[Rfam]
RNA sequence: AGAGAAUCUGUGGUGUUACAUCAAAUUUUACAAAUCCUUGCACUUUCAGGAAUUUUGAUAGUGAAGAAAAACAUUGGGGACUAUGUAAUGUGAGUCUC
Dot-bracket structure: .((((..(.....................................................................................)))))
Numbered sequence: 001a002g003a004g005a006a007u008c009u010g011u012g013g014u015g016u017u018a019c020a021u022c023a024a025a026u027u028u029u030a031c032a033a034a035u036c037c038u039u040g041c042a043c044u045u046u047c048a049g050g051a052a053u054u055u056u057g058a059u060a061g062u063g064a065a066g067a068a069a070a071a072c073a074u075u076g077g078g079g080a081c082u083a084u085g086u087a088a089u090g091u092g093a094g095u096c097u098c
Stems, first nucleotide, its partner, number of pairs: 002098004008094001
Small nucleolar RNA snoR26: a 98-nucleotide RNA sequence from Hordeum vulgare. Lineage of the source: Eukaryota > Viridiplantae > Euphyllophyta > commelinids > Hordeum vulgare. For this family Rfam cites "Multiple snoRNA gene clusters from Arabidopsis" (Brown et al., RNA, 2001). The base pairs follow the family's consensus structure, which was predicted with WAR. Rfam links the family to the GO terms nucleolus and RNA processing. The family has 8 seed sequences and 611 matches in Rfam 15.1.